[Rfam]
RNA sequence: UCUUCAUUUUCCACACUCUCUCACCGGUUAGAGAGGCGAGAGAGCGCGCUAAAUGAAGAGA
Numbered sequence: 001u002c003u004u005c006a007u008u009u010u011c012c013a014c015a016c017u018c019u020c021u022c023a024c025c026g027g028u029u030a031g032a033g034a035g036g037c038g039a040g041a042g043a044g045c046g047c048g049c050u051a052a053a054u055g056a057a058g059a060g061a
Stems, first nucleotide, its partner, number of pairs: 001059007012048001014046001016044002019041004
The record is a 61-nucleotide RNA sequence from Pristionchus pacificus, which matches "mir-8364 microRNA precursor family" in Rfam.
Rfam links the family to the GO terms RISC complex and miRNA-mediated post-transcriptional gene silencing.
It scores 73 bits against the family's covariance model.
NCBI's taxonomy places the organism under Eukaryota, Nematoda, Rhabditina, Neodiplogasteridae, Pristionchus.